RNA sequence: UGAUCAGUCUAGGGUAGAUCCUCAUCUAGAUGUGGCAGAUUCACACCUAACUGCUUAGAAUCACUUGUUAUUGCAAGUAUGACUACUUCAUUGACACUCAUAAAACAUAUUUGAAAUAAAAGGUAUAUCAAAUUAUGAAU
Numbered sequence: 001u002g003a004u005c006a007g008u009c010u011a012g013g014g015u016a017g018a019u020c021c022u023c024a025u026c027u028a029g030a031u032g033u034g035g036c037a038g039a040u041u042c043a044c045a046c047c048u049a050a051c052u053g054c055u056u057a058g059a060a061u062c063a064c065u066u067g068u069u070a071u072u073g074c075a076a077g078u079a080u081g082a083c084u085a086c087u088u089c090a091u092u093g094a095c096a097c098u099c100a101u102a103a104a105a106c107a108u109a110u111u112u113g114a115a116a117u118a119a120a121a122g123g124u125a126u127a128u129c130a131a132a133u134u135a136u137g138a139a140u
Stems, first nucleotide, its partner, number of pairs: 004138003008132001012128001014126002019121001024117002027113005
Rfam assigns this 140-nucleotide RNA from Populus trichocarpa to the family "MIR480 microRNA precursor family". Rfam links the family to the GO terms miRNA-mediated post-transcriptional gene silencing and RISC complex. The literature on the family includes a 2005 paper in Plant Cell by Lu et al., "Novel and mechanical stress-responsive MicroRNAs in Populus trichocarpa that are absent from Arabidopsis". The family has 69 seed sequences and 3,070 matches in Rfam 15.1. NCBI's taxonomy places the organism under Eukaryota, Streptophytina, Gunneridae, Saliceae, Populus.